RNA sequence: UUGAUUGAAACAUGUGUAGGUCUCAUAUUUUGGAAUUAAGUCUCACAUAAAGUGGUGGGACUCACACAUGUUUCAAUCAA
Number, nucleotide and partner (000 for none) at each position: 001u080002u079003g078004a077005u076006u075007g074008a073009a072010a071011c070012a069013u068014g067015u066016g065017u064018a000019g000020g000021u000022c000023u058024c057025a056026u054027a053028u052029u051030u050031u049032g048033g000034a000035a000036u000037u000038a000039a000040g000041u000042c000043u000044c000045a000046c000047a000048u032049a031050a030051a029052g028053u027054g026055g000056u025057g024058g023059g000060a000061c000062u000063c000064a017065c016066a015067c014068a013069u012070g011071u010072u009073u008074c007075a006076a005077u004078c003079a002080a001
RNA: MIR5269 microRNA precursor family